This 113-nucleotide RNA sequence from Metallococcus carri belongs to the Rfam family "SAM (S-adenosyl methionine) riboswitch aptamer". The match comes from Rfam's covariance-model search (103 bits). About the family: SAM-IV is a mRNA element that regulates gene expression via direct sensing of S-adenosylmethionine (SAM or AdoMet). SAM-IV riboswitches share conserved nucleotide positions with the previously described SAM-I riboswitches sequence analysis and molecular recognition experiments suggest that SAM-I and SAM-IV riboswitches share similar ligand binding sites, but have different scaffolds.

RNA sequence: GGUCUUGAGUGUCAGCGCAUCAGCCCCGGCUUGCUGACCGGCAACCCUCCAUCGCGGCGGGGUGCCCCGGGUGAUGACCUGGCUCAGCCCACGCGGCCGAGCAAGUGCGAACC
Number, nucleotide and partner (000 for none) at each position: 001g079002g078003u077004c076005u000006u000007g000008a000009g039010u000011g038012u037013c036014a035015g034016c033017g000018c000019a000020u000021c000022a031023g030024c000025c000026c000027c000028g000029g000030c023031u022032u000033g016034c015035u014036g013037a012038c011039c009040g066041g065042c064043a000044a000045c062046c061047c060048u000049c057050c056051a000052u000053c000054g000055c000056g050057g049058c000059g000060g047061g046062g045063u000064g042065c041066c040067c000068c000069g000070g000071g000072u000073g000074a000075u000076g004077a003078c002079c001080u000081g000082g102083c101084u100085c099086a000087g097088c096089c095090c000091a000092c000093g000094c000095g089096g088097c087098c000099g085100a084101g083102c082103a000104a000105g000106u000107g000108c000109g000110a000111a000112c000113c000